[Rfam]
RNA sequence: UAGAAUAGGUUUCUCAAGGGUGGUCAGCUAAUCCCCUAAUGAAAGGGGGUGAUGCUGUGACGGUAUUUGAAGCAUUGAUGUUUGCAUGUGCUUUUGCAAGCUUAAUUGUUGCAAUCCUGUCUUUUACCAAUAAAAAAUAACCCACCCUUGAGCCUAGCAGCCAGGUGGAUUAUUUCCCUCUAUAGCUGAUCCCCUUUUAAGGGACCUUCUAUUGUAUCGACCGUUUGGUGUUACCAGCACCAGCG
Numbered sequence: 001u002a003g004a005a006u007a008g009g010u011u012u013c014u015c016a017a018g019g020g021u022g023g024u025c026a027g028c029u030a031a032u033c034c035c036c037u038a039a040u041g042a043a044a045g046g047g048g049g050u051g052a053u054g055c056u057g058u059g060a061c062g063g064u065a066u067u068u069g070a071a072g073c074a075u076u077g078a079u080g081u082u083u084g085c086a087u088g089u090g091c092u093u094u095u096g097c098a099a100g101c102u103u104a105a106u107u108g109u110u111g112c113a114a115u116c117c118u119g120u121c122u123u124u125u126a127c128c129a130a131u132a133a134a135a136a137a138u139a140a141c142c143c144a145c146c147c148u149u150g151a152g153c154c155u156a157g158c159a160g161c162c163a164g165g166u167g168g169a170u171u172a173u174u175u176c177c178c179u180c181u182a183u184a185g186c187u188g189a190u191c192c193c194c195u196u197u198u199a200a201g202g203g204a205c206c207u208u209c210u211a212u213u214g215u216a217u218c219g220a221c222c223g224u225u226u227g228g229u230g231u232u233a234c235c236a237g238c239a240c241c242a243g244c245g
Stems, first nucleotide, its partner, number of pairs: 001214003005210001007208001009206001011189002013152008022142003029052001031050001033048005059121005065115001072085003095113004163181002190204004222245003226242007
The record is a 245-nucleotide RNA from Mesobacillus persicus, which matches "BsrG" in Rfam. bsrE, bsrG and bsrH pair through intermolecular interactions with antisense sRNAs. They form type I toxin/antitoxin system that includes an mRNA encoding for a short, toxic peptide (bsrE, bsrG and bsrH) and an antitoxin that is comprised of an antisense RNA. bsrG encodes a 39-amino-acid toxin, and the 180 nucleotide antisense sRNA called SR4 acts as the antitoxin (they overlap by 123 nucleotides). Gene Ontology terms of the family: toxin activity and autolysis. On this family, see Jahn et al., Mol Microbiol 2015: "Against the mainstream: the membrane-associated type I toxin BsrG from Bacillus subtilis interferes with cell envelope biosynthesis without increasing membrane permeability". Rfam classes the family as a small RNA.